The record is an 85-nucleotide RNA from Geodermatophilus dictyosporus, which matches "c-di-GMP-II-GAG riboswitch aptamer" in Rfam. A search with the family's covariance model found it, with a score of 44 bits. On this family, see Weinberg et al., Proc Natl Acad Sci U S A 2017: "Bioinformatic analysis of riboswitch structures uncovers variant classes with altered ligand specificity". Clan: c-di-GMP_II riboswitch clan. Pairs were carried over by alignment from the consensus structure, which is taken from published work.
[Rfam]
Nucleotides: 085
Stems, first nucleotide, its partner, number of pairs: 001085001004082001006080006014060002022055008036072002038068005
Number, partner (000 for none) and nucleotide at each position: 001085a002000a003000c004082a005000c006080a007079c008078g009077g010076g011075u012000g013000u014060g015059c016000g017000a018000u019000g020000a021000c022055c023054c024053g025052c026051c027050g028049g029048g030000c031000g032000c033000a034000c035000u036072g037071g038068u039067c040066g041065c042064c043000g044000a045000u046000a047000g048029c049028c050027c051026g052025g053024c054023g055022g056000u057000g058000a059015g060014c061000a062000g063000a064042g065041g066040c067039g068038a069000a070000a071037c072036c073000g074000a075011g076010c077009c078008c079007g080006u081000c082004u083000c084000a085001u